[Rfam]
RNA sequence: GCACUUCACUUUCACUCGGAUCGUCCGGCACGUUCCUGCCGGUGGAAGGACACACC
Numbered sequence: 001g002c003a004c005u006u007c008a009c010u011u012u013c014a015c016u017c018g019g020a021u022c023g024u025c026c027g028g029c030a031c032g033u034u035c036c037u038g039c040c041g042g043u044g045g046a047a048g049g050a051c052a053c054a055c056c
Stems, first nucleotide, its partner, number of pairs: 009048006025042006